[Rfam]
RNA sequence: UUAAUUAGUAUAGCCUGUUUUAGUGAUCACAUCAAUUCUUUACAGGCUAUGCUAAUCUAUGC
Numbered sequence: 001u002u003a004a005u006u007a008g009u010a011u012a013g014c015c016u017g018u019u020u021u022a023g024u025g026a027u028c029a030c031a032u033c034a035a036u037u038c039u040u041u042a043c044a045g046g047c048u049a050u051g052c053u054a055a056u057c058u059a060u061g062c
Base pairs, nucleotide, nucleotide: 004056005055006054007053008052009051010050011049012048013047014046015045016044017043018042024034025033026032027031